The family of this 79-nucleotide sequence from Hermetia illucens is "drz-agam-1 ribozyme".
It scores 40 bits against the family's covariance model.
NCBI's taxonomy places the organism under Eukaryota, Protostomia, Insecta, Neoptera, Hermetia.
The base pairs follow the family's consensus structure, which is taken from published work.
For this family Rfam cites "Widespread occurrence of self-cleaving ribozymes" (Webb et al., Science, 2009).
The family has 7 seed sequences and 10,507 matches in Rfam 15.1.
Gene Ontology term of the family: catalytic activity.
[Rfam]
RNA sequence: UACUAGCAACUCCUAUCUCCACCUCCAUGUGGUGACCGCUGGGAACUCUUUCUUAACGAAAAGCUGCAGAGGGAGAAGG
Numbered sequence: 001u002a003c004u005a006g007c008a009a010c011u012c013c014u015a016u017c018u019c020c021a022c023c024u025c026c027a028u029g030u031g032g033u034g035a036c037c038g039c040u041g042g043g044a045a046c047u048c049u050u051u052c053u054u055a056a057c058g059a060a061a062a063g064c065u066g067c068a069g070a071g072g073g074a075g076a077a078g079g
Stems, first nucleotide, its partner, number of pairs: 012079003016075001018073003021033003045065001047063001049061004
Dot-bracket structure: ...........(((.(.((((((.......)))...........(.(.((((.....)))).).).....))).).)))